[Rfam]
RNA sequence: AUAUCCUUUAAUUUGGUCCAGAGAGACUAAAAAGGGCGGCUACGAUAAGUGCUUUAUAGUUUGUUUAUUAUGCAUAUUAUGCCCUUUUGUCUUUAUGGCAAAAGGGCAUUUUUAU
Number, nucleotide and partner (000 for none) at each position: 001a000002u000003a000004u036005c035006c034007u033008u032009u031010a000011a000012u000013u030014u029015g028016g027017u026018c025019c000020a000021g000022a000023g000024a000025g018026a017027c016028u015029a014030a013031a009032a008033a007034g006035g005036g004037c000038g000039g000040c000041u000042a000043c000044g000045a000046u000047a000048a000049g075050u074051g073052c072053u000054u070055u000056a068057u000058a000059g065060u000061u000062u000063g000064u000065u059066u000067a000068u056069u000070a054071u000072g052073c051074a050075u049076a000077u000078u000079a109080u108081g107082c106083c105084c104085u103086u102087u101088u100089g099090u098091c097092u000093u000094u000095a000096u000097g091098g090099c089100a088101a087102a086103a085104g084105g083106g082107c081108a080109u079110u000111u000112u000113u000114a000115u000
Notes:
This 115-nucleotide RNA from Heyndrickxia ginsengihumi belongs to the Rfam family "PyrR binding site". It is annotated as a cis-regulatory element.